Rfam assigns this 412-nucleotide RNA sequence to the family "Bacterial RNase P class A".
The base pairs follow the family's consensus structure, which is taken from published work.
RNA sequence: AAGGUGGAUCAAGGUGGCCGUCGGUUGGCCCUGCGGGGUCGACGGGAGGAAAGUCCGGGCUCCACAGAGAACGAUGGUGGGUAACGCCCACCGGCCGUAAGGUCAGGGAAAGUGCAACAGAAAGUAAACCGCCCGGCGGCGGCUUCGGCCUCGCCAGGUAAGGGUGAAACGGUGAGGUAAGAGCUCACCAGCAGGCUGGGUGACCAGCUUGGCUCGGUAAACCCCAUCGGGAGCAAGGCCAAACAGGGGGCAUCGGUCGACCUUGCGUCGGCCGGCGAGUCUUCUCGGCUCGCUACGACCUCCGGGUAGGCUGCUUGAGGCGUCGGGCAAUCGACGUCCUAGAGGAAUGGUCACCCGUGGCAGCGCUAGCGCGAGGCCAGGACAAAACCCGGCUUAUCGAUCCACCUUCCUG
Number, nucleotide and partner (000 for none) at each position: 001a408002a407003g406004g405005u404006g403007g402008a401009u400010c399011a397012a000013g355014g354015u353016g352017g351018c350019c349020g000021u046022c045023g000024g043025u042026u041027g040028g039029c038030c000031c000032u000033g000034c000035g000036g000037g000038g029039u028040c027041g026042a025043c024044g000045g022046g021047a000048g000049g000050a000051a395052a394053g393054u000055c392056c391057g390058g389059g388060c233061u232062c231063c230064a000065c000066a000067g286068a285069g284070a283071a000072c229073g228074a227075u226076g225077g091078u090079g089080g088081g087082u000083a000084a000085c000086g000087c081088c080089c079090a078091c077092c106093g104094g103095c102096c101097g000098u000099a000100a000101g096102g095103u094104c093105a000106g092107g224108g223109a000110a000111a000112g222113u221114g218115c217116a000117a000118c000119a000120g000121a000122a000123a000124g000125u000126a000127a000128a000129c163130c162131g159132c158133c157134c000135g155136g154137c153138g152139g151140c000141g000142g000143c000144u000145u000146c000147g000148g000149c000150c000151u139152c138153g137154c136155c135156a000157g133158g132159u131160a000161a000162g130163g129164g000165u000166g000167a000168a000169a000170c000171g189172g188173u187174g186175a185176g184177g000178u000179a000180a000181g000182a000183g000184c176185u175186c174187a173188c172189c171190a000191g213192c211193a210194g209195g208196c207197u206198g205199g204200g000201u000202g000203a000204c199205c198206a197207g196208c195209u194210u193211g192212g000213c191214u000215c000216g000217g115218u114219a000220a000221a113222c112223c108224c107225c076226a075227u074228c073229g072230g063231g062232a061233g060234c000235a000236a000237g312238g311239c310240c309241a000242a000243a000244c000245a000246g000247g303248g302249g300250g299251c000252a000253u000254c000255g000256g000257u000258c000259g000260a000261c000262c000263u000264u000265g000266c000267g000268u000269c000270g000271g000272c000273c000274g000275g000276c000277g291278a290279g289280u288281c287282u000283u070284c069285u068286c067287g281288g280289c279290u278291c277292g000293c000294u000295a000296c000297g000298a000299c250300c249301u000302c248303c247304g000305g000306g000307u000308a000309g240310g239311c238312u237313g000314c000315u000316u000317g000318a000319g338320g337321c336322g335323u334324c333325g332326g331327g000328c000329a000330a000331u326332c325333g324334a323335c322336g321337u320338c319339c000340u000341a000342g000343a000344g000345g000346a000347a000348u000349g019350g018351u017352c016353a015354c014355c013356c000357g000358u000359g000360g000361c000362a000363g000364c000365g000366c000367u000368a000369g000370c000371g000372c000373g000374a000375g000376g000377c000378c000379a000380g000381g000382a000383c000384a000385a000386a000387a000388c059389c058390c057391g056392g055393c053394u052395u051396a000397u011398c000399g010400a009401u008402c007403c006404a005405c004406c003407u002408u001409c000410c000411u000412g000